RNA sequence: GUCGAUAAAAGGCAAACUUAUUGAAAGAUAAGGACGCAAAGCCAUGGGUCUAAGGAAGUCUACUUCUAUGAUUGCCAGGUUGCCGAG
Numbered sequence: 001g002u003c004g005a006u007a008a009a010a011g012g013c014a015a016a017c018u019u020a021u022u023g024a025a026a027g028a029u030a031a032g033g034a035c036g037c038a039a040a041g042c043c044a045u046g047g048g049u050c051u052a053a054g055g056a057a058g059u060c061u062a063c064u065u066c067u068a069u070g071a072u073u074g075c076c077a078g079g080u081u082g083c084c085g086a087g
Stems, first nucleotide, its partner, number of pairs: 012037002017032006040081004045077003048072003055066004

Overview
A member of the RNA family "c-di-GMP-I riboswitch aptamer" from Anaerosolibacter carboniphilus, 87 nucleotides long. It scores 88 bits against the family's covariance model. Clan: c-di-GMP_I riboswitch clan.